Clostridiales-1 RNA: a 175-nucleotide sequence. It is annotated as a small RNA.

[Rfam]
RNA sequence: UUAUCAAAAGUAGAGGGACGAAGAGCCGUUCGUGCUACCACGAAAAAGGCUUUAUGUAUUCUCGACCCGUCCAACAUGAGACAGGAGAGAAUUACAAAGUAAACUCGCGGAAUUCGAAUGUUUGGAGAAUUGGGGGGAGCAGCAAAGCUGCGGAGCUAUUAGUAAGUAUUGAUCA
Numbered sequence: 001u002u003a004u005c006a007a008a009a010g011u012a013g014a015g016g017g018a019c020g021a022a023g024a025g026c027c028g029u030u031c032g033u034g035c036u037a038c039c040a041c042g043a044a045a046a047a048g049g050c051u052u053u054a055u056g057u058a059u060u061c062u063c064g065a066c067c068c069g070u071c072c073a074a075c076a077u078g079a080g081a082c083a084g085g086a087g088a089g090a091a092u093u094a095c096a097a098a099g100u101a102a103a104c105u106c107g108c109g110g111a112a113u114u115c116g117a118a119u120g121u122u123u124g125g126a127g128a129a130u131u132g133g134g135g136g137g138a139g140c141a142g143c144a145a146a147g148c149u150g151c152g153g154a155g156c157u158a159u160u161a162g163u164a165a166g167u168a169u170u171g172a173u174c175a
Base pairs, nucleotide, nucleotide: 001175003173004172005171006170007169010066016060017059018057019056020055022053023052024051025050026049027048029046030045031042032041033040034039070126071125072124073123074122075120076119077118080115081114087108089106090105092103093102129159130158132157133156139151140150141149142148
Dot-bracket structure: (.(((((..(.....(((((.((((((.((((((....))))..)).)))))).))).)).....)...((((((((..((.....(.((.((........)).)).).....))..))).)))))..((.((.....((((.....))))....)))).........))))).)
The base pairs follow the family's consensus structure, which is taken from published work. The sequence is in the family's curated seed alignment.